Rfam assigns this 59-nucleotide RNA sequence from Albula glossodonta to the family "U7 small nuclear RNA". The literature on the family includes a 2007 paper in Genomics Proteomics Bioinformatics by Marz et al., "U7 snRNAs: a computational survey". A search with the family's covariance model found it, with a score of 45 bits.
RNA sequence: UGGGAUUUUUUCUUUCUUAGUAUUUGUCUAGCAGGCUUCCUGAUAAACAGGGAGCCCCA
Numbered sequence: 001u002g003g004g005a006u007u008u009u010u011u012c013u014u015u016c017u018u019a020g021u022a023u024u025u026g027u028c029u030a031g032c033a034g035g036c037u038u039c040c041u042g043a044u045a046a047a048c049a050g051g052g053a054g055c056c057c058c059a
Stems, first nucleotide, its partner, number of pairs: 034056009

From the family's description: Animal histone pre-mRNAs are spliced by a different mechanism than nuclear pre-mRNAs and self-splicing introns.
NCBI's taxonomy places the organism under Eukaryota, Teleostomi, Euteleostomi, Elopocephalai, Albula.